[Rfam]
RNA sequence: GUGGCUCUGCUCUAACCGAAGCCUGACGUUAUGCGUCAGAGAUUCAUGUAGGUUACGCGGGGCCAU
Numbered sequence: 001g002u003g004g005c006u007c008u009g010c011u012c013u014a015a016c017c018g019a020a021g022c023c024u025g026a027c028g029u030u031a032u033g034c035g036u037c038a039g040a041g042a043u044u045c046a047u048g049u050a051g052g053u054u055a056c057g058c059g060g061g062g063c064c065a066u
Stems, first nucleotide, its partner, number of pairs: 001066010015053003023039007
DUF3800-VIII RNA: a 66-nucleotide RNA. By type it is a small RNA. Bacteroidetes, Cyanobacteria, Firmicutes, Planctomycetes (1 example), Proteobacteria, Tenericutes (1 example).